Overview
The family of this 129-nucleotide RNA sequence from Neobacillus thermocopriae is "PyrR binding site". A search with the family's covariance model found it, with a score of 69 bits. The source organism's lineage runs through Bacteria, Bacillati, Bacilli, Caryophanales and Neobacillus.
RNA sequence: AUACCUUUUAAAUGAAGUCCAGAGAGGCUUACAAGGGUGUAUAAAUCGGAUUGGCUUUGAAUGAAGCCAAAAGCGGAGAUUGGUAAGAUUUGUUACACCCUGAUCUUUUUGGAUCAGGGUUUUUUUUAU
Dot-bracket structure: ..((((((......(((((......)))))..)))))).......(....((((((((....))))))))....)...................(.((((((((((....)))))))))).).......
Numbered sequence: 001a002u003a004c005c006u007u008u009u010a011a012a013u014g015a016a017g018u019c020c021a022g023a024g025a026g027g028c029u030u031a032c033a034a035g036g037g038u039g040u041a042u043a044a045a046u047c048g049g050a051u052u053g054g055c056u057u058u059g060a061a062u063g064a065a066g067c068c069a070a071a072a073g074c075g076g077a078g079a080u081u082g083g084u085a086a087g088a089u090u091u092g093u094u095a096c097a098c099c100c101u102g103a104u105c106u107u108u109u110u111g112g113a114u115c116a117g118g119g120u121u122u123u124u125u126u127u128a129u
Stems, first nucleotide, its partner, number of pairs: 003038006015030005046075001051070008095122001097120010